[Rfam]
RNA sequence: CAUGACAACACCGUCGUUUUUCUUCGCUUUCUUUUUUAACUUCCGUUGCUAAGAGGCCCGCGCUCGUCGUGUGAGAAAUAAAGCGAAGACGAACCGCAAAGCCUCCUGAAACAGGGGGCUUUUUUU
Numbered sequence: 001c002a003u004g005a006c007a008a009c010a011c012c013g014u015c016g017u018u019u020u021u022c023u024u025c026g027c028u029u030u031c032u033u034u035u036u037u038a039a040c041u042u043c044c045g046u047u048g049c050u051a052a053g054a055g056g057c058c059c060g061c062g063c064u065c066g067u068c069g070u071g072u073g074a075g076a077a078a079u080a081a082a083g084c085g086a087a088g089a090c091g092a093a094c095c096g097c098a099a100a101g102c103c104u105c106c107u108g109a110a111a112c113a114g115g116g117g118g119c120u121u122u123u124u125u126u
Base pairs, nucleotide, nucleotide: 016094017093018092019091021089022088023087024086025085026084027083028082029081030080032078033077034076036074037073038072044056060067061066098122099121100120101119102118103117104116105115106114107113
Shown here is a 126-nucleotide sequence from Sodalis glossinidius, a member of the family "Phenylalanine leader peptide". A reference for the family is Zurawski et al. (1978), "Nucleotide sequence of the leader region of the phenylalanine operon of Escherichia coli", Proc Natl Acad Sci U S A. The family has 71 seed sequences and 379 matches in Rfam 15.1. Rfam's curators put it in the seed alignment. The source organism's lineage runs through Bacteria, Pseudomonadota, Gammaproteobacteria, Enterobacterales and Sodalis glossinidius.